[Rfam]
RNA sequence: AUAAAUCUUCGGGGCUAGGUGAAAUUCCAUACCGGCGGUAAAGUCCGCGAGCCUUUUUGAUGUUUCUUUCAUUCAAAAAUGGCAGAUUUGGUGCGAUUCCAAAACCGACAGUUAAAGUCUGGAUGGUAGAAGAUGUUU
Numbered sequence: 001a002u003a004a005a006u007c008u009u010c011g012g013g014g015c016u017a018g019g020u021g022a023a024a025u026u027c028c029a030u031a032c033c034g035g036c037g038g039u040a041a042a043g044u045c046c047g048c049g050a051g052c053c054u055u056u057u058u059g060a061u062g063u064u065u066c067u068u069u070c071a072u073u074c075a076a077a078a079a080u081g082g083c084a085g086a087u088u089u090g091g092u093g094c095g096a097u098u099c100c101a102a103a104a105c106c107g108a109c110a111g112u113u114a115a116a117g118u119c120u121g122g123a124u125g126g127u128a129g130a131a132g133a134u135g136u137u138u
Base pairs, nucleotide, nucleotide: 003136005134006133007132008131009130010129018028019027031118032117033107034106035048036047037046038045043105044104051083052082053081087103088102089101090100091099109121110120111119
Dot-bracket structure: ..(.((((((.......((.......))..[[((((((....[[))))..(((...........................)))...(((((.......)))))]])).(((.....]]))).......)))))).)..
The family of this 138-nucleotide sequence from Brachyspira pilosicoli is "FMN riboswitch aptamer (RFN element)". Rfam's curators write: The RFN element is a highly conserved domain that is found frequently in the 5'-untranslated regions of prokaryotic mRNAs that encode for flavin mononucleotide (FMN) biosynthesis and transport proteins. The source organism's lineage runs through Bacteria, Spirochaetia, Brachyspirales, Brachyspira and Brachyspira pilosicoli.